[Rfam]
RNA sequence: UGCCUUCACGUGUUGCCCAUUCAUUGCUUUCUACAAUGAACGCGGCGUCAGAAAAGGUAAACAGCAACACUUGGACCGGCCUUAGCAAGGUUCCUCGCCGAUGACCUUGUCCUAAGUUCUGUACCAAGAACAUUU
Numbered sequence: 001u002g003c004c005u006u007c008a009c010g011u012g013u014u015g016c017c018c019a020u021u022c023a024u025u026g027c028u029u030u031c032u033a034c035a036a037u038g039a040a041c042g043c044g045g046c047g048u049c050a051g052a053a054a055a056g057g058u059a060a061a062c063a064g065c066a067a068c069a070c071u072u073g074g075a076c077c078g079g080c081c082u083u084a085g086c087a088a089g090g091u092u093c094c095u096c097g098c099c100g101a102u103g104a105c106c107u108u109g110u111c112c113u114a115a116g117u118u119c120u121g122u123a124c125c126a127a128g129a130a131c132a133u134u135u
Stems, first nucleotide, its partner, number of pairs: 002058005011050002014047004018042001020040006070128004075122002078119002084117001088113002090110002095104001
Annotation:
Shown here is a 135-nucleotide RNA from Kryptolebias marmoratus, a member of the family "Small nucleolar RNA SNORA13". Clan: SNORA13 clan. The family's consensus secondary structure was predicted with CMfinder. Taxonomically the source falls in Kryptolebias (Eukaryota, Opisthokonta, Deuterostomia, Vertebrata).